[Rfam]
The family of this 108-nucleotide sequence from Ornithinibacillus caprae is "Glycine riboswitch aptamer". It scores 32 bits against the family's covariance model.
RNA sequence: CUCUGGAGAGUGUUUACAUCUUCAUGUAAACCACCCACGAAGCAAGUAUCUAUCCCUCUAUAGUGAUGGUAUUCGGUAGAUACGCAACUUUCUGGUUUAAGGACAGAG
Numbered sequence: 001c002u003c004u005g006g007a008g009a010g011u012g013u014u015u016a017c018a019u020c021u022u023c024a025u026g027u028a029a030a031c032c033a034c035c036c037a038c039g040a041a042g043c044a045a046g047u048a049u050c051u052a053u054c055c056c057u058c059u060a061u062a063g064u065g066a067u068g069g070u071a072u073u074c075g076g077u078a079g080a081u082a083c084g085c086a087a088c089u090u091u092c093u094g095g096u097u098u099a100a101g102g103a104c105a106g107a108g
Stems, first nucleotide, its partner, number of pairs: 001108005012031004033096003037091001040090003046083009